RNA sequence: AAAACUCAAAUUUGUAUGGAGUUGUACUGUUUGCCGCCAGGGAUGCUAUUCCAACUGCAUACAAAUUUUAGUUA
Numbered sequence: 001a002a003a004a005c006u007c008a009a010a011u012u013u014g015u016a017u018g019g020a021g022u023u024g025u026a027c028u029g030u031u032u033g034c035c036g037c038c039a040g041g042g043a044u045g046c047u048a049u050u051c052c053a054a055c056u057g058c059a060u061a062c063a064a065a066u067u068u069u070a071g072u073u074a
Stems, first nucleotide, its partner, number of pairs: 008068009018058001020056005026050001028048002034042002
RNA: mir-2807 microRNA precursor family